[Rfam]
Background: Shown here is a 112-nucleotide RNA from Falsochrobactrum ovis, a member of the family "Alphaproteobacterial ar15". Rfam 15.1 lists 316 matches to the family in 177 species. The literature on the family includes a 2012 paper in RNA Biol by del Val et al., "A survey of sRNA families in alpha-proteobacteria". By type it is a small RNA. Its Rfam clan is "suhB sRNA clan".

RNA sequence: AUCUCAGCUCUACGUUUCCUCCUCCCAUUUGCGCGAGCUGAGUGUUCCCCUCUGGAGGUUUGCCUCAAGGCACCUUCAAAACUCAAGCCAGACAUUCGUCUGGCUUUUUUUU
Numbered sequence: 001a002u003c004u005c006a007g008c009u010c011u012a013c014g015u016u017u018c019c020u021c022c023u024c025c026c027a028u029u030u031g032c033g034c035g036a037g038c039u040g041a042g043u044g045u046u047c048c049c050c051u052c053u054g055g056a057g058g059u060u061u062g063c064c065u066c067a068a069g070g071c072a073c074c075u076u077c078a079a080a081a082c083u084c085a086a087g088c089c090a091g092a093c094a095u096u097c098g099u100c101u102g103g104c105u106u107u108u109u110u111u112u
Base pairs, nucleotide, nucleotide: 001043003042004041005040007038008037009036013033014032015031053078054077055076056075057074058073059072085106086105087104088103089102090101091100092099093098
Dot-bracket structure: (.(((.(((...(((...............)))..))).)))).........(((((((............)))))))......(((((((((....)))))))))......